[Rfam]
RNA sequence: AACGAUCUUCAGGGCAGGGUGAAAUUCCCGACCGGCGGUACAGUCCGCGAGCCGAAAGGCUGAUCUGGUGCAAUUCCAGAACCGACAGUAAAGUCUGGAUGGGAGAGGAUGAAC
Numbered sequence: 001a002a003c004g005a006u007c008u009u010c011a012g013g014g015c016a017g018g019g020u021g022a023a024a025u026u027c028c029c030g031a032c033c034g035g036c037g038g039u040a041c042a043g044u045c046c047g048c049g050a051g052c053c054g055a056a057a058g059g060c061u062g063a064u065c066u067g068g069u070g071c072a073a074u075u076c077c078a079g080a081a082c083c084g085a086c087a088g089u090a091a092a093g094u095c096u097g098g099a100u101g102g103g104a105g106a107g108g109a110u111g112a113a114c
Stems, first nucleotide, its partner, number of pairs: 005110006017029003031094002033084002035048004043082002051060003064080005086097003
This 114-nucleotide sequence from Alkalibacter rhizosphaerae belongs to the Rfam family "FMN riboswitch aptamer (RFN element)". The base pairs follow the family's consensus structure, which is taken from published work. A search with the family's covariance model found it, with a score of 118 bits. From the family's description: The RFN element is a highly conserved domain that is found frequently in the 5'-untranslated regions of prokaryotic mRNAs that encode for flavin mononucleotide (FMN) biosynthesis and transport proteins. This element is a metabolite-dependent riboswitch that directly binds FMN in the absence of proteins. In Bacillus subtilis, the riboswitch most likely controls gene expression by causing premature transcription termination within the 5' untranslated region of the ribDEAHT operon and precluding access to the ribosome-binding site of ypaA mRNA.The FMN riboswitch structure, reported in present an FMN-bound six-stem junction, adopts a butterfly-like scaffold, stapled together by opposingly directed but nearly identically folded peripheral domains.